Notes: Rfam assigns this 232-nucleotide RNA to the family "RT-2 RNA". The family's RNA type in Rfam is small RNA.

RNA sequence: UCAGGUCCGACAUAGUAAGCGGUAAACAGCCGCCGAACUCAGUACCUUUAUGGAAGGAUGACUGGUACCCUGCCUUUAGGCUAAAACACUCCUUUGAUGUAGUCGCUCGGACGCUGCUUGCAUGGCACGGUUUACGCGGACCGUGUUUCAUGGGCGGUACUACUAUGCAGUUACCUUUUUCGCGUGAGAUUCAGCAUUACUGUACGAAGGGGACAAUUUUUAUUUUAUGACA
Numbered sequence: 001u002c003a004g005g006u007c008c009g010a011c012a013u014a015g016u017a018a019g020c021g022g023u024a025a026a027c028a029g030c031c032g033c034c035g036a037a038c039u040c041a042g043u044a045c046c047u048u049u050a051u052g053g054a055a056g057g058a059u060g061a062c063u064g065g066u067a068c069c070c071u072g073c074c075u076u077u078a079g080g081c082u083a084a085a086a087c088a089c090u091c092c093u094u095u096g097a098u099g100u101a102g103u104c105g106c107u108c109g110g111a112c113g114c115u116g117c118u119u120g121c122a123u124g125g126c127a128c129g130g131u132u133u134a135c136g137c138g139g140a141c142c143g144u145g146u147u148u149c150a151u152g153g154g155c156g157g158u159a160c161u162a163c164u165a166u167g168c169a170g171u172u173a174c175c176u177u178u179u180u181c182g183c184g185u186g187a188g189a190u191u192c193a194g195c196a197u198u199a200c201u202g203u204a205c206g207a208a209g210g211g212g213a214c215a216a217u218u219u220u221u222a223u224u225u226u227a228u229g230a231c232a
Stems, first nucleotide, its partner, number of pairs: 004046003019033005072081003089212008098204001099163005104156005113121002124147010167203005175184001